A member of the RNA family "ABC transporter regulator" from Winslowiella iniecta, 78 nucleotides long. A reference for the family is Chao et al. (2012), "An atlas of Hfq-bound transcripts reveals 3' UTRs as a genomic reservoir of regulatory small RNAs", EMBO J. It is annotated as a cis-regulatory element. A search with the family's covariance model found it, with a score of 71 bits. Pairs were carried over by alignment from the consensus structure, which is taken from published work.
[Rfam]
RNA sequence: UGCGACCAUCGUGAUGUGGUUAUUUUAAUCAUAAGUUUAUGAUUGUAUGGGCAAUAAUUUUAUUGCCCUUUUUAUUUU
Numbered sequence: 001u002g003c004g005a006c007c008a009u010c011g012u013g014a015u016g017u018g019g020u021u022a023u024u025u026u027a028a029u030c031a032u033a034a035g036u037u038u039a040u041g042a043u044u045g046u047a048u049g050g051g052c053a054a055u056a057a058u059u060u061u062a063u064u065g066c067c068c069u070u071u072u073u074a075u076u077u078u
Stems, first nucleotide, its partner, number of pairs: 026045007047070001049068008